A member of the RNA family "Small nucleolar RNA snR191" from Phaeomoniella chlamydospora, 241 nucleotides long.
The family is grouped with related families in Rfam's "SNORA74 clan".
Its family is annotated with RNA processing and nucleolus in the Gene Ontology.
Lineage of the source: Eukaryota > Fungi > Dikarya > Pezizomycotina > Phaeomoniella.

RNA sequence: UACCCAUCGCUAAGUCAAGACUCCUUUCUGCAUCGCCAUGCAAAUAUUCUCCAUGGAAGGUUGUCUGUUACAGCUUUGGAACAUCAAUCAAGCUCGCUCAACCUGCAAAGGUAGAGAGACUAAGUCGUCGUCUUGAUGGCAACAGUCGCUGAGCUAUGAGUGCUUCGUUUUGAGUUGAAGUCUGCUCCUUCUUCGUGAAGUUUCUUUCAUAGCAGAUUUCUUAGUUAUGUUUCACACAUCA
Numbered sequence: 001u002a003c004c005c006a007u008c009g010c011u012a013a014g015u016c017a018a019g020a021c022u023c024c025u026u027u028c029u030g031c032a033u034c035g036c037c038a039u040g041c042a043a044a045u046a047u048u049c050u051c052c053a054u055g056g057a058a059g060g061u062u063g064u065c066u067g068u069u070a071c072a073g074c075u076u077u078g079g080a081a082c083a084u085c086a087a088u089c090a091a092g093c094u095c096g097c098u099c100a101a102c103c104u105g106c107a108a109a110g111g112u113a114g115a116g117a118g119a120c121u122a123a124g125u126c127g128u129c130g131u132c133u134u135g136a137u138g139g140c141a142a143c144a145g146u147c148g149c150u151g152a153g154c155u156a157u158g159a160g161u162g163c164u165u166c167g168u169u170u171u172g173a174g175u176u177g178a179a180g181u182c183u184g185c186u187c188c189u190u191c192u193u194c195g196u197g198a199a200g201u202u203u204c205u206u207u208c209a210u211a212g213c214a215g216a217u218u219u220c221u222u223a224g225u226u227a228u229g230u231u232u233c234a235c236a237c238a239u240c241a
Stems, first nucleotide, its partner, number of pairs: 003079002006076001018066004024060004029042004091155005098115002101112004118147004124140007160235003166229003177220004183214004189199003